[Rfam]
Nucleotides: 105
Stems, first nucleotide, its partner, number of pairs: 014074003018071004025063007081104004088099003
Number, partner (000 for none) and nucleotide at each position: 001000a002000c003000g004000u005000u006000g007000c008000g009000a010000u011000g012000a013000a014074g015073u016072g017000g018071g019070a020069g021068g022000u023000u024000g025063c026062u027061g028060a029059c030058a031057c032000a033000c034000c035000c036000g037000g038000c039000c040000c041000c042000u043000u044000u045000g046000c047000c048000a049000u050000g051000a052000c053000c054000g055000g056000g057031g058030u059029g060028u061027u062026a063025g064000g065000a066000g067000a068021u069020u070019u071018c072016c073015a074014u075000g076000g077000a078000g079000u080000a081104u082103g083102u084101c085000c086000g087000a088099u089098u090097c091000a092000a093000a094000u095000u096000u097090g098089g099088g100000c101084g102083a103082u104081a105000g
The family of this 105-nucleotide RNA from Insulibacter thermoxylanivorax is "S10-Clostridia ribosomal protein leader".
A search with the family's covariance model found it, with a score of 39 bits.
The organism belongs to Insulibacter, within Bacteria.
A reference for the family is Eckert and Weinberg (2020), "Discovery of 20 novel ribosomal leader candidates in bacteria and archaea", BMC Microbiol.